[Rfam]
RNA sequence: GAUGUAAUGUGUGCAUAGUUUUCAUGUGUCUGAUAGCCGUGUCUGUCUGUGCUUUGCAUUCAGAUCUUACUAUCCACACAAACAUCAUGCAGCCAAAGAUCAUAGUACUGGCCUAGCGUUGUCUCAUUGGACAUAAUUUACCCCUGGCCAGCCUCCAAAUUCCCACACAGAA
Number, nucleotide and partner (000 for none) at each position: 001g000002a000003u000004g000005u000006a000007a000008u000009g000010u000011g000012u000013g090014c089015a088016u087017a000018g000019u000020u000021u000022u000023c000024a000025u000026g000027u080028g079029u078030c000031u076032g075033a000034u072035a071036g070037c000038c000039g067040u000041g065042u064043c063044u062045g061046u000047c000048u058049g057050u056051g000052c000053u000054u000055u000056g050057c049058a048059u000060u000061c045062a044063g043064a042065u041066c000067u039068u000069a000070c036071u035072a034073u000074c000075c032076a031077c000078a029079c028080a027081a000082a000083c000084a000085u000086c000087a016088u015089g014090c013091a000092g000093c000094c000095a000096a000097a000098g162099a161100u000101c000102a000103u000104a000105g000106u000107a000108c151109u150110g149111g148112c147113c146114u000115a145116g144117c000118g142119u000120u135121g134122u133123c000124u131125c130126a000127u000128u000129g000130g125131a124132c000133a122134u121135a120136a000137u000138u000139u000140a000141c000142c118143c000144c116145u115146g113147g112148c111149c110150a109151g108152c000153c000154u000155c000156c000157a000158a000159a000160u000161u099162c098163c000164c000165a000166c000167a000168c000169a000170g000171a000172a000

Record summary:
The family of this 172-nucleotide sequence from Pipistrellus kuhlii is "Small nucleolar RNA SNORA23". A reference for the family is Huttenhofer et al. (2001), "RNomics: an experimental approach that identifies 201 candidates for novel, small, non-messenger RNAs in mouse", EMBO J. About the family: The members of this family belong to the H/ACA class of snoRNAs which are thought to guide the sites of modification of uridines to pseudouridines. This family includes human snoRNA ACA23 (SNORA23) and mouse snoMBI-1. The family's RNA type in Rfam is H/ACA-box small nucleolar RNA.